[Rfam]
RNA sequence: AGCUUACCAGUGAUGCCCAAAAAUAAAUGUCUGAACAAAUGACUGUCCAGUGAUAACAGGUUUGAACUGAGGUAGGCC
Numbered sequence: 001a002g003c004u005u006a007c008c009a010g011u012g013a014u015g016c017c018c019a020a021a022a023a024u025a026a027a028u029g030u031c032u033g034a035a036c037a038a039a040u041g042a043c044u045g046u047c048c049a050g051u052g053a054u055a056a057c058a059g060g061u062u063u064g065a066a067c068u069g070a071g072g073u074a075g076g077c078c
Stems, first nucleotide, its partner, number of pairs: 002077007
The record is a 78-nucleotide RNA from Labeo rohita, which matches "Small nucleolar RNA SNORD72" in Rfam. It is annotated as a C/D-box small nucleolar RNA. Lineage of the source: Eukaryota > Metazoa > Teleostomi > Labeoninae > Labeo. Rfam describes the family as follows. snoRNA HBII-240 belongs to the CD family of snoRNAs. It is the human orthologue of the mouse MBII-240 and is predicted to guide 2'O-ribose methylation of the large 28S rRNA at residue U4590. Gene Ontology terms of the family: nucleolus and RNA processing.